This 142-nucleotide sequence from Yamadazyma tenuis belongs to the Rfam family "Small nucleolar RNA snR80". On this family, see Schattner et al., Nucleic Acids Res 2004: "Genome-wide searching for pseudouridylation guide snoRNAs: analysis of the Saccharomyces cerevisiae genome". Its family is annotated with nucleolus and RNA processing in the Gene Ontology. Its Rfam clan is "SNORA28 clan". Pairs were carried over by alignment from the consensus structure, which was predicted with WAR.

RNA sequence: UGUUGUUUGCCGACACUCUGGUGCCAAGUGAAUGUUGUAUUUGGUUCCUAUUUAGGUGCAAACUAGAUUGAUUUUAGCUAACUACUCACCAUUAUAGCCUUUUCUACCAUGGCUAUGAUAGGUCCAUUUCAGUGGCAUACAA
Dot-bracket structure: ......(((..........((.((.((((.........)))).)).))..........)))...............(((.........((((.((((((...........)))))).)).))...........)))......
The family has 6 seed sequences and 447 matches in Rfam 15.1.